[Rfam]
RNA sequence: UUUGUCGUAAGACAUGCACUAAAGGAAGUGAGACUGCAAACCUUGGUUCCAACGAAUACGCCCGAGCACGUGAGUGCGAAGGGGGCGCACGAAGUGCUGGAUACUGAGGCUAUUUAAGUCGGAUGAGGUAGCACAGCAUACUGACGUCCAAAGGUUGGGUAACCAACAAGUGCUUAGAUGGUAGAUCCAGUGGAUAUUGAGGGAAGGAAUAUGCU
Numbered sequence: 001u002u003u004g005u006c007g008u009a010a011g012a013c014a015u016g017c018a019c020u021a022a023a024g025g026a027a028g029u030g031a032g033a034c035u036g037c038a039a040a041c042c043u044u045g046g047u048u049c050c051a052a053c054g055a056a057u058a059c060g061c062c063c064g065a066g067c068a069c070g071u072g073a074g075u076g077c078g079a080a081g082g083g084g085g086c087g088c089a090c091g092a093a094g095u096g097c098u099g100g101a102u103a104c105u106g107a108g109g110c111u112a113u114u115u116a117a118g119u120c121g122g123a124u125g126a127g128g129u130a131g132c133a134c135a136g137c138a139u140a141c142u143g144a145c146g147u148c149c150a151a152a153g154g155u156u157g158g159g160u161a162a163c164c165a166a167c168a169a170g171u172g173c174u175u176a177g178a179u180g181g182u183a184g185a186u187c188c189a190g191u192g193g194a195u196a197u198u199g200a201g202g203g204a205a206g207g208a209a210u211a212u213g214c215u
Stems, first nucleotide, its partner, number of pairs: 001016001003014004028215001031212001037207001041202006048194004097190006109182003113178007121149004127142004
The record is a 215-nucleotide RNA sequence from Algoriphagus aquimarinus, which matches "Group II catalytic intron D1-D4-3" in Rfam.
The organism belongs to Algoriphagus, within Bacteria.
A search with the family's covariance model found it, with a score of 54 bits.